A member of the RNA family "Rhodo-rpoB RNA" from Loktanella fryxellensis, 92 nucleotides long. The organism belongs to Loktanella, within Bacteria. A search with the family's covariance model found it, with a score of 54 bits. By type it is a cis-regulatory element.
RNA sequence: UCGUCGGGAGGCCUUUGGUGGGACAAGGGUCACGUAUGGACGGCACGCCCCCAGUCAUAAGCAUCCCACCCCGCGGCCCGGGCGAGGUGAGA
Number, nucleotide and partner (000 for none) at each position: 001u043002c042003g041004u040005c039006g000007g000008g000009a000010g031011g030012c029013c028014u027015u026016u025017g024018g000019u000020g000021g000022g000023a000024c017025a016026a015027g014028g013029g012030u011031c010032a000033c000034g000035u000036a000037u000038g000039g005040a004041c003042g002043g001044c000045a000046c000047g000048c000049c000050c000051c000052c000053a000054g000055u000056c000057a000058u000059a000060a000061g000062c000063a000064u092065c091066c000067c089068a088069c087070c086071c000072c084073g083074c000075g000076g000077c000078c000079c000080g000081g000082g000083c073084g072085a000086g070087g069088u068089g067090a000091g065092a064